The family of this 103-nucleotide RNA sequence from Treponema pedis is "TD-2 RNA". NCBI's taxonomy places the organism under Bacteria, Pseudomonadati, Spirochaetia, Treponema, Treponema pedis. The family's consensus secondary structure is taken from published work. Its Rfam clan is "TD (Treponema denticola) motifs". Rfam classes the family as a small RNA.
[Rfam]
RNA sequence: UUUGCAAAUUGCAAAGCUGCAUACAAUAAACGAUGUUUUGUGCAAAGCACAAAACUCGAAGAUAAACAGUGAGGCUGAAUUUCUGCCGAACUGCUUAUCGAAU
Numbered sequence: 001u002u003u004g005c006a007a008a009u010u011g012c013a014a015a016g017c018u019g020c021a022u023a024c025a026a027u028a029a030a031c032g033a034u035g036u037u038u039u040g041u042g043c044a045a046a047g048c049a050c051a052a053a054a055c056u057c058g059a060a061g062a063u064a065a066a067c068a069g070u071g072a073g074g075c076u077g078a079a080u081u082u083c084u085g086c087c088g089a090a091c092u093g094c095u096u097a098u099c100g101a102a103u
Stems, first nucleotide, its partner, number of pairs: 001015006031058003035055008061099005067093004073087002